[Rfam]
Source information
The family of this 59-nucleotide sequence from Qipengyuania atrilutea is "terC RNA". A search with the family's covariance model found it, with a score of 43 bits. Pairs were carried over by alignment from the consensus structure, which is taken from published work. It is annotated as a cis-regulatory element. The source organism's lineage runs through Bacteria, Pseudomonadota, Sphingomonadales, Erythrobacteraceae and Qipengyuania.
RNA sequence: GCGCGUUACCGGGCCCCUCUGGCGAGAUCUGCUUCUGCAUCGCGAUGUCGGAACAAGUG
Numbered sequence: 001g002c003g004c005g006u007u008a009c010c011g012g013g014c015c016c017c018u019c020u021g022g023c024g025a026g027a028u029c030u031g032c033u034u035c036u037g038c039a040u041c042g043c044g045a046u047g048u049c050g051g052a053a054c055a056a057g058u059g
Stems, first nucleotide, its partner, number of pairs: 006053002009051004022043004030039003